[Rfam]
RNA sequence: GUUAGAAAUUUGCGUGGUGCUGACUCUAGUACGAGAGGACCGAGUUGGACCAACCUCUGGUGUAUCAGUUGUACUGCCAAGUGCAUAGCUGAGUAGCUAAGUUGGGAGAGGAUAAGUGCUGAAAGCAUAUAAGUACGAAACCCGCCACAAGAUGAGAUUUCUUUUAAGGGUCGUGGGAGAUGACCACGUUGAUAGGUUACAGGUGUAACGGCAGUAAUGUCAUAGCCGAGUGAUACUAAUAACCCGUAG
Dot-bracket structure: ...((((((((..((((..(((((((...............))))))).(((((...(((....(((((((((((....))))))..)))))....))).)))))....((....(((((...........)))))....))..))))......)))))))).....(((((((((.......)))))....((((((((.((..(...((((....)))))...))..))))).)))...))))....
The family of this 249-nucleotide part of an RNA from Capnocytophaga canis is "Bacterial large subunit ribosomal RNA". A search with the family's covariance model found it, with a score of 2703 bits. The family's consensus secondary structure is taken from published work. Taxonomically the source falls in Capnocytophaga (Bacteria, Bacteroidota, Flavobacteriia, Flavobacteriaceae). Clan: LSU clan.